Rfam assigns this 224-nucleotide RNA to the family "manA RNA".
RNA sequence: UGCAGUUAGGUGACGGCCUAACUGUAGGGAUGUGCGUUGAAUAACAUCUUCGUCCACUGAUGUAAAACGGCGUGUCACAGGUGGAGCUGAGGCCACCCUUCUGGUAACAGUAGGGAGCCACAUCACUCAAUCCAGAGUGGGACACGGCAGGGAGGGAACGAAUGCCAAUAACUGGAGUGAGUACCCCAAACUUGUAGGUAAUCCAGAGUCCUACCAUCCCCCGA
Numbered sequence: 001u002g003c004a005g006u007u008a009g010g011u012g013a014c015g016g017c018c019u020a021a022c023u024g025u026a027g028g029g030a031u032g033u034g035c036g037u038u039g040a041a042u043a044a045c046a047u048c049u050u051c052g053u054c055c056a057c058u059g060a061u062g063u064a065a066a067a068c069g070g071c072g073u074g075u076c077a078c079a080g081g082u083g084g085a086g087c088u089g090a091g092g093c094c095a096c097c098c099u100u101c102u103g104g105u106a107a108c109a110g111u112a113g114g115g116a117g118c119c120a121c122a123u124c125a126c127u128c129a130a131u132c133c134a135g136a137g138u139g140g141g142a143c144a145c146g147g148c149a150g151g152g153a154g155g156g157a158a159c160g161a162a163u164g165c166c167a168a169u170a171a172c173u174g175g176a177g178u179g180a181g182u183a184c185c186c187c188a189a190a191c192u193u194g195u196a197g198g199u200a201a202u203c204c205a206g207a208g209u210c211c212u213a214c215c216a217u218c219c220c221c222c223g224a
Stems, first nucleotide, its partner, number of pairs: 001026011028219005036068002051062004071146006078089003082134004091119003096115004123140005149192002151187002166179002172206004194214005

Rfam's curators write: manA RNA has been located in 5'UTR regions of genes of mannose or fructose metabolism. Rfam classes the family as a cis-regulatory element. Rfam's curators put it in the seed alignment.